RNA sequence: GUGAAAUGGAUAACAGUUUUUCGUAUAAUCUUGGGGAUUGGCCCGAGAGUUUCUACGAGAUCACCGCAAAUGAUCUGGCUACGAAAAAAAGGACGGAAUCU
Numbered sequence: 001g002u003g004a005a006a007u008g009g010a011u012a013a014c015a016g017u018u019u020u021u022c023g024u025a026u027a028a029u030c031u032u033g034g035g036g037a038u039u040g041g042c043c044c045g046a047g048a049g050u051u052u053c054u055a056c057g058a059g060a061u062c063a064c065c066g067c068a069a070a071u072g073a074u075c076u077g078g079c080u081a082c083g084a085a086a087a088a089a090a091g092g093a094c095g096g097a098a099u100c101u
Base pairs, nucleotide, nucleotide: 018087019086020085021084022083023082024081025080029048030047031046032045033044034043035042058076059075060074061073062072063071
The family of this 101-nucleotide RNA from Paenibacillus silvestris is "Purine riboswitch aptamer". Pairs were carried over by alignment from the consensus structure, which is taken from published work.